[Rfam]
RNA sequence: GGUUUUUGAAGGGAAUUGAAUUAAGUUCAGAUGGUGUGUGCGGUGCUAUGGUGUUGCAUGGGGGGCAUGUGUGAGAGUACAUAUGCUAGGUGAGUGCAUGCAUCCACCCCGCGCCUCCUCCCCUUACACCUUGAUCUUAUUUGAUCCGUUGUGAUCCCAGCCCCAAAGAGCCAACCUGACAUGAAAAGCUGUCCUUCCUCAGGGCGCUGUGCAGAGAGGCCCCUUGGGCAGUUGCAGCACUGUAGUCCUCCUGGUCUCGGAACUGGUCCUACAGGAUGGUGCUCAGGAGUAAUGAACUGAUCAGAUAGACCAGGCUGGGCUUGUCCCUGGCUGCUGAUUAUCCAGGGGAUUGUGGUCUGG
Numbered sequence: 001g002g003u004u005u006u007u008g009a010a011g012g013g014a015a016u017u018g019a020a021u022u023a024a025g026u027u028c029a030g031a032u033g034g035u036g037u038g039u040g041c042g043g044u045g046c047u048a049u050g051g052u053g054u055u056g057c058a059u060g061g062g063g064g065g066c067a068u069g070u071g072u073g074a075g076a077g078u079a080c081a082u083a084u085g086c087u088a089g090g091u092g093a094g095u096g097c098a099u100g101c102a103u104c105c106a107c108c109c110c111g112c113g114c115c116u117c118c119u120c121c122c123c124u125u126a127c128a129c130c131u132u133g134a135u136c137u138u139a140u141u142u143g144a145u146c147c148g149u150u151g152u153g154a155u156c157c158c159a160g161c162c163c164c165a166a167a168g169a170g171c172c173a174a175c176c177u178g179a180c181a182u183g184a185a186a187a188g189c190u191g192u193c194c195u196u197c198c199u200c201a202g203g204g205c206g207c208u209g210u211g212c213a214g215a216g217a218g219g220c221c222c223c224u225u226g227g228g229c230a231g232u233u234g235c236a237g238c239a240c241u242g243u244a245g246u247c248c249u250c251c252u253g254g255u256c257u258c259g260g261a262a263c264u265g266g267u268c269c270u271a272c273a274g275g276a277u278g279g280u281g282c283u284c285a286g287g288a289g290u291a292a293u294g295a296a297c298u299g300a301u302c303a304g305a306u307a308g309a310c311c312a313g314g315c316u317g318g319g320c321u322u323g324u325c326c327c328u329g330g331c332u333g334c335u336g337a338u339u340a341u342c343c344a345g346g347g348g349a350u351u352g353u354g355g356u357c358u359g360g
Stems, first nucleotide, its partner, number of pairs: 050115005055071006077097004082092002140187003145179002148176001149174003153171001156170001158168001197254002202249003206246003211243002214240001216238001219235002222231001262280004267276003284359004295351002298348001313332004318327002
About this RNA
Rfam assigns this 360-nucleotide RNA from Carlito syrichta to the family "Small Cajal body-specific RNA 2". A search with the family's covariance model found it, with a score of 197 bits. Rfam classes the family as a small Cajal body RNA.